This 135-nucleotide sequence from Lophium mytilinum belongs to the Rfam family "U4 spliceosomal RNA".
RNA sequence: AUCAUCACAGGGCAUUACGCGUGGCAGUGAGGAGUCGUCCGAGCCCGUGUCUUUUGCUGGUUGAAAACUACCCAACCUGACCGCUCCUGCUGGUCUUCGGAUCGGCAGGGAAUUUUUGGAACCCCCAACUCGAGG
Numbered sequence: 001a002u003c004a005u006c007a008c009a010g011g012g013c014a015u016u017a018c019g020c021g022u023g024g025c026a027g028u029g030a031g032g033a034g035u036c037g038u039c040c041g042a043g044c045c046c047g048u049g050u051c052u053u054u055u056g057c058u059g060g061u062u063g064a065a066a067a068c069u070a071c072c073c074a075a076c077c078u079g080a081c082c083g084c085u086c087c088u089g090c091u092g093g094u095c096u097u098c099g100g101a102u103c104g105g106c107a108g109g110g111a112a113u114u115u116u117u118g119g120a121a122c123c124c125c126c127a128a129c130u131c132g133a134g135g
Base pairs, nucleotide, nucleotide: 017050018049019048020047021046023045024044025043031040032039033038085110086109087108088107089106090105091104092103093102094101095100125135126134
The match comes from Rfam's covariance-model search (80 bits). Its Rfam clan is "U4 clan".